Notes
The record is a 69-nucleotide RNA from Picathartes gymnocephalus, which matches "Small nucleolar RNA SNORD63" in Rfam. Rfam's curators write: snoRNA U63 is found in both humans and mice. Rfam classes the family as a C/D-box small nucleolar RNA. NCBI's taxonomy places the organism under Eukaryota, Eumetazoa, Chordata, Sauropsida, Picathartes.
RNA sequence: GUGCUGUGAUGUUAAACUGUCAACACAUCAUUCUGAAGAAUUGUGUGGAGACUCUCUGAACUGAGCACC
Numbered sequence: 001g002u003g004c005u006g007u008g009a010u011g012u013u014a015a016a017c018u019g020u021c022a023a024c025a026c027a028u029c030a031u032u033c034u035g036a037a038g039a040a041u042u043g044u045g046u047g048g049a050g051a052c053u054c055u056c057u058g059a060a061c062u063g064a065g066c067a068c069c
Base pairs, nucleotide, nucleotide: 001068002067003066004065